[Rfam]
RNA: mir-28 microRNA precursor family
Organism: Phascolarctos cinereus
RNA sequence: CCUGCUCUCAAGGAGCUCACAGUCUAAUGGGUUAUAAUUUCCCCCAUUAGAUCGUAAGCUCCUUGAGAGCAGA
Numbered sequence: 001c002c003u004g005c006u007c008u009c010a011a012g013g014a015g016c017u018c019a020c021a022g023u024c025u026a027a028u029g030g031g032u033u034a035u036a037a038u039u040u041c042c043c044c045c046a047u048u049a050g051a052u053c054g055u056a057a058g059c060u061c062c063u064u065g066a067g068a069g070c071a072g073a
Base pairs, nucleotide, nucleotide: 002072003071004070005069006068007067008066009065010064011063012062013061014060015059016058017057019055020054022052023051024050025049026048027047028046029045030039031038032037
Dot-bracket structure: .((((((((((((((((.((.(((((((((((....))).....)))))))).)).)))))))))))))))).